[Rfam]
RNA sequence: GCAUGGCUGAAUUCUGUUUUACUCUUGAAAUAGUAAAUGCAGUCAGACACCAUGCUAAAUGAUUGUUUUCACAUUCUGACCUAAAACCAGGAGAAGGGUGCUCCUUACAUGCGUCAUUCUUAUGUCAGAGUGAAUACAGAA
Numbered sequence: 001g002c003a004u005g006g007c008u009g010a011a012u013u014c015u016g017u018u019u020u021a022c023u024c025u026u027g028a029a030a031u032a033g034u035a036a037a038u039g040c041a042g043u044c045a046g047a048c049a050c051c052a053u054g055c056u057a058a059a060u061g062a063u064u065g066u067u068u069u070c071a072c073a074u075u076c077u078g079a080c081c082u083a084a085a086a087c088c089a090g091g092a093g094a095a096g097g098g099u100g101c102u103c104c105u106u107a108c109a110u111g112c113g114u115c116a117u118u119c120u121u122a123u124g125u126c127a128g129a130g131u132g133a134a135u136a137c138a139g140a141a
Stems, first nucleotide, its partner, number of pairs: 001055006014042004019037001068134003074130006088124002091121005097115004

Small nucleolar RNA SNORA15: a 141-nucleotide sequence from Channa argus. About the family: ACA15 is a member of the H/ACA class of snoRNA that guide the sites of modification of uridines to pseudouridines. Its family is annotated with RNA processing and nucleolus in the Gene Ontology. By type it is an H/ACA-box small nucleolar RNA. Lineage of the source: Eukaryota > Euteleostomi > Neoteleostei > Percomorphaceae > Channa.